[Rfam]
RNA sequence: CAGAAGAAUCUGUAAAGCUCAGGAGGGAUAGCGCCAUGAUUCUCACAUCAUAGUGUUCUUUGGCGCUAUCUAUCCUGAGUUUCACGGCUUCUUCUU
Numbered sequence: 001c002a003g004a005a006g007a008a009u010c011u012g013u014a015a016a017g018c019u020c021a022g023g024a025g026g027g028a029u030a031g032c033g034c035c036a037u038g039a040u041u042c043u044c045a046c047a048u049c050a051u052a053g054u055g056u057u058c059u060u061u062g063g064c065g066c067u068a069u070c071u072a073u074c075c076u077g078a079g080u081u082u083c084a085c086g087g088c089u090u091c092u093u094c095u096u
Stems, first nucleotide, its partner, number of pairs: 010087001016081009026071010